[Rfam]
RNA sequence: GUUUAUUUUGGGAGUGUUUGCUGUAUAAUUGGACUUGAUAAAAUGGUUAGAGGUGCAGUAGGCAUGACUUGAGUAGAU
Number, nucleotide and partner (000 for none) at each position: 001g078002u077003u076004u075005a074006u073007u072008u071009u000010g070011g069012g068013a000014g065015u064016g063017u062018u061019u060020g059021c058022u057023g056024u055025a054026u053027a000028a000029u000030u049031g048032g047033a000034c045035u000036u000037g000038a000039u000040a000041a000042a000043a000044u000045g034046g000047u032048u031049a030050g000051a000052g000053g026054u025055g024056c023057a022058g021059u020060a019061g018062g017063c016064a015065u014066g000067a000068c012069u011070u010071g008072a007073g006074u005075a004076g003077a002078u001
The family of this 78-nucleotide sequence from Rattus norvegicus is "mir-1902 microRNA precursor family". Rfam links the family to the GO terms miRNA-mediated post-transcriptional gene silencing and RISC complex.